[Rfam]
RNA sequence: UUGCACCUGUGUGUUCUAUUGUCCUGCUUUCUAGCUGUGCUAGUAGGACAUAACACUGGUGCAAAAAGGAGAAGCUGCUCCUUGGGGCAGCAGCGGCCAGACAACCGUAGAGAUAGAUCCACAGAUGAAUUGCUAAUAUGCUGCUUGUCUACUAAAUCUAUCUCACAUUU
Numbered sequence: 001u002u003g004c005a006c007c008u009g010u011g012u013g014u015u016c017u018a019u020u021g022u023c024c025u026g027c028u029u030u031c032u033a034g035c036u037g038u039g040c041u042a043g044u045a046g047g048a049c050a051u052a053a054c055a056c057u058g059g060u061g062c063a064a065a066a067a068g069g070a071g072a073a074g075c076u077g078c079u080c081c082u083u084g085g086g087g088c089a090g091c092a093g094c095g096g097c098c099a100g101a102c103a104a105c106c107g108u109a110g111a112g113a114u115a116g117a118u119c120c121a122c123a124g125a126u127g128a129a130u131u132g133c134u135a136a137u138a139u140g141c142u143g144c145u146u147g148u149c150u151a152c153u154a155a156a157u158c159u160a161u162c163u164c165a166c167a168u169u170u
Stems, first nucleotide, its partner, number of pairs: 002063005008055003012050009021040002024037001026035001110164008128146002

The record is a 170-nucleotide RNA from Hordeum vulgare, which matches "small nucleolar RNA snoR143" in Rfam.
The source organism's lineage runs through Eukaryota, Spermatophyta, commelinids, Poaceae and Hordeum vulgare.
The base pairs follow the family's consensus structure, which was predicted with RNAalifold.
Rfam links the family to the GO terms nucleolus and RNA processing.